[Rfam]
RNA: ffh sRNA
RNA sequence: GCGCCCGGAGGUCAACUCCCGCCAGCGAUGUUCGCCCGCGGGAGCGAUAACG
Numbered sequence: 001g002c003g004c005c006c007g008g009a010g011g012u013c014a015a016c017u018c019c020c021g022c023c024a025g026c027g028a029u030g031u032u033c034g035c036c037c038g039c040g041g042g043a044g045c046g047a048u049a050a051c052g
Stems, first nucleotide, its partner, number of pairs: 016044007025035004